RNA sequence: CCUAGCACUGCGUACUAGGCUAGUUUAUGUCGUGCUUUCAGCACU
Numbered sequence: 001c002c003u004a005g006c007a008c009u010g011c012g013u014a015c016u017a018g019g020c021u022a023g024u025u026u027a028u029g030u031c032g033u034g035c036u037u038u039c040a041g042c043a044c045u
Stems, first nucleotide, its partner, number of pairs: 001019005007013002032044005
This 45-nucleotide sequence from Lentisphaera araneosa belongs to the Rfam family "Acido-Lenti-1 RNA". The base pairs follow the family's consensus structure, which is taken from published work.